[Rfam]
RNA sequence: AAGAGCUGUGAUGAGUUAUAACAGACCUGUAAUGAUUUGCGAACAUGAUCGCAGAUUUUUAUGAACAUCUAAGGGACUGAGUUCUU
Numbered sequence: 001a002a003g004a005g006c007u008g009u010g011a012u013g014a015g016u017u018a019u020a021a022c023a024g025a026c027c028u029g030u031a032a033u034g035a036u037u038u039g040c041g042a043a044c045a046u047g048a049u050c051g052c053a054g055a056u057u058u059u060u061a062u063g064a065a066c067a068u069c070u071a072a073g074g075g076a077c078u079g080a081g082u083u084c085u086u
Stems, first nucleotide, its partner, number of pairs: 002085005

This 86-nucleotide sequence from Hibiscus trionum belongs to the Rfam family "Small nucleolar RNA SNORD25".
On this family, see Qu et al., Nucleic Acids Res 2001: "Identification of 10 novel snoRNA gene clusters from Arabidopsis thaliana".
It scores 70 bits against the family's covariance model.
Gene Ontology terms of the family: nucleolus and RNA processing.
The base pairs follow the family's consensus structure, which was predicted with PFOLD.
It is annotated as a C/D-box small nucleolar RNA.